[Rfam]
A member of the RNA family "Purine riboswitch aptamer" from Ilyobacter polytropus, 98 nucleotides long. It scores 77 bits against the family's covariance model.
RNA sequence: AAAUCAAAAAAAAAUAACACUCGUAUAAUUCCGAAAUAUGGUCGGGAGUCUCUACAGCUAACCGUAAAUUAGCUACUAUGAGUGAAAAGAUAAAACAG
Numbered sequence: 001a002a003a004u005c006a007a008a009a010a011a012a013a014a015u016a017a018c019a020c021u022c023g024u025a026u027a028a029u030u031c032c033g034a035a036a037u038a039u040g041g042u043c044g045g046g047a048g049u050c051u052c053u054a055c056a057g058c059u060a061a062c063c064g065u066a067a068a069u070u071a072g073c074u075a076c077u078a079u080g081a082g083u084g085a086a087a088a089g090a091u092a093a094a095a096c097a098g
Base pairs, nucleotide, nucleotide: 018084019083020082021081022080023079024078025077029047030046031045032044033043034042056074057073058072059071060070061069

Its family is annotated with purine nucleobase biosynthetic process in the Gene Ontology.